RNA sequence: CUCGCGGAACCUUAAUCCACACACGCAUCGACACGGUCUGUCGGGUGCCCGCCAGGAGGCUUCGGUCUCGUGCUCGGGUUUCAGAUCGGGAUGCGUGGAGGCUCAAC
Numbered sequence: 001c002u003c004g005c006g007g008a009a010c011c012u013u014a015a016u017c018c019a020c021a022c023a024c025g026c027a028u029c030g031a032c033a034c035g036g037u038c039u040g041u042c043g044g045g046u047g048c049c050c051g052c053c054a055g056g057a058g059g060c061u062u063c064g065g066u067c068u069c070g071u072g073c074u075c076g077g078g079u080u081u082c083a084g085a086u087c088g089g090g091a092u093g094c095g096u097g098g099a100g101g102c103u104c105a106a107c
Stems, first nucleotide, its partner, number of pairs: 022097008034088007047079005
Background
The family of this 107-nucleotide sequence from Thioalkalivibrio sp. K90mix is "t44 RNA". The organism belongs to Thioalkalivibrio, within Bacteria. By type it is a small RNA. For this family Rfam cites "Transcriptome analysis of Escherichia coli using high-density oligonucleotide probe arrays" (Tjaden et al., Nucleic Acids Res, 2002). The base pairs follow the family's consensus structure, which was predicted with LocARNA.